[Rfam]
RNA sequence: AAGCGUUGAAGCAAAAGAGUGCGCCAGUACGCAUUGUUUUACGGAGCUUUCAGGAGGGUUGUGCAGUGAAACCUUAAACCGGCGUAGGCCGUAAGGCCGAAAGAAAUGCUCGCU
Numbered sequence: 001a002a003g004c005g006u007u008g009a010a011g012c013a014a015a016a017g018a019g020u021g022c023g024c025c026a027g028u029a030c031g032c033a034u035u036g037u038u039u040u041a042c043g044g045a046g047c048u049u050u051c052a053g054g055a056g057g058g059u060u061g062u063g064c065a066g067u068g069a070a071a072c073c074u075u076a077a078a079c080c081g082g083c084g085u086a087g088g089c090c091g092u093a094a095g096g097c098c099g100a101a102a103g104a105a106a107u108g109c110u111c112g113c114u
Stems, first nucleotide, its partner, number of pairs: 001049004011042001013040004018035005024082002027079001063109003087098004
Rfam assigns this 114-nucleotide RNA sequence to the family "drum RNA".
Rfam's curators put it in the seed alignment.